[Rfam]
RNA sequence: CAUCCGGAGAGUGGUCGCGGAAACGCGCCCCGCCGAAGGAGAAAGCGUUGCGGGACUGACUCCUGUUACGUGAAGCUCUCAGGCCAAUGACGGAUG
Numbered sequence: 001c002a003u004c005c006g007g008a009g010a011g012u013g014g015u016c017g018c019g020g021a022a023a024c025g026c027g028c029c030c031c032g033c034c035g036a037a038g039g040a041g042a043a044a045g046c047g048u049u050g051c052g053g054g055a056c057u058g059a060c061u062c063c064u065g066u067u068a069c070g071u072g073a074a075g076c077u078c079u080c081a082g083g084c085c086a087a088u089g090a091c092g093g094a095u096g
Stems, first nucleotide, its partner, number of pairs: 001096006013030002016027001032084003035080002039078003045071004
The family of this 96-nucleotide RNA from Aureimonas altamirensis is "Glycine riboswitch aptamer". It scores 46 bits against the family's covariance model. Gene Ontology term of the family: glycine biosynthetic process.